[Rfam]
A member of the RNA family "MarS sRNA" from Streptococcus sp. sy004, 149 nucleotides long. Its family is annotated with mRNA 5'-UTR binding and positive regulation of translation, ncRNA-mediated in the Gene Ontology. The match comes from Rfam's covariance-model search (118 bits). Rfam describes the family as follows. Interacts with the 5'UTR of the mga transcript (the multiple virulence gene regulator gene) and was renamed MarS for mag-activating regulatory sRNA. In MarS deletion strains expression of mga and several Mga-activated genes is reduced. This down-regulation of virulence factors leads to increased susceptibility of the deletion strain to phagocytosis, reduced adherence to human keratinocytes. However, the lack of MarS increased bacterial dissemination and tolerance towards oxidative stress. Rfam classes the family as a small RNA. The organism belongs to Streptococcus, within Bacteria.
RNA sequence: AUGCGAUGAGUCGAUACAUGAUUUAGUUAAUAAAUCAUUAUUGAGCAUGGGACGUCAUAAGGCAGGAGCCGACGUUGAUAGGUUGUGUGAACCUUCCUAUCACAUCAUGAUUUGAUGCCCUAUCCCCUCUAUAUCAGAGGGGAUUUUUU
Numbered sequence: 001a002u003g004c005g006a007u008g009a010g011u012c013g014a015u016a017c018a019u020g021a022u023u024u025a026g027u028u029a030a031u032a033a034a035u036c037a038u039u040a041u042u043g044a045g046c047a048u049g050g051g052a053c054g055u056c057a058u059a060a061g062g063c064a065g066g067a068g069c070c071g072a073c074g075u076u077g078a079u080a081g082g083u084u085g086u087g088u089g090a091a092c093c094u095u096c097c098u099a100u101c102a103c104a105u106c107a108u109g110a111u112u113u114g115a116u117g118c119c120c121u122a123u124c125c126c127c128u129c130u131a132u133a134u135c136a137g138a139g140g141g142g143a144u145u146u147u148u149u
Stems, first nucleotide, its partner, number of pairs: 012043005018038008049120003052075004061070003076102007103117004122144009